[Rfam]
RNA: Lysine riboswitch aptamer
RNA sequence: AUUCGAUGUAGAGGCGCAGACAAUAUUAGUAGCUAAUCGGAGCUGGAAAAGCAGCUGUGAGGAUUAGUCAAAGGAGCGUUUGCCGAAAUUACCAUUUGCUUUUCAAAUUGGUAGUUGGGUCUUGGCUGAAUAGGUCAAGGACUGUCGUAGUUCAUAACUACGGAGUGCUAUCUGAGAU
Numbered sequence: 001a002u003u004c005g006a007u008g009u010a011g012a013g014g015c016g017c018a019g020a021c022a023a024u025a026u027u028a029g030u031a032g033c034u035a036a037u038c039g040g041a042g043c044u045g046g047a048a049a050a051g052c053a054g055c056u057g058u059g060a061g062g063a064u065u066a067g068u069c070a071a072a073g074g075a076g077c078g079u080u081u082g083c084c085g086a087a088a089u090u091a092c093c094a095u096u097u098g099c100u101u102u103u104c105a106a107a108u109u110g111g112u113a114g115u116u117g118g119g120u121c122u123u124g125g126c127u128g129a130a131u132a133g134g135u136c137a138a139g140g141a142c143u144g145u146c147g148u149a150g151u152u153c154a155u156a157a158c159u160a161c162g163g164a165g166u167g168c169u170a171u172c173u174g175a176g177a178u
Stems, first nucleotide, its partner, number of pairs: 006173001008171004016083006024075001032068007087116008096107002117143002120140008145163007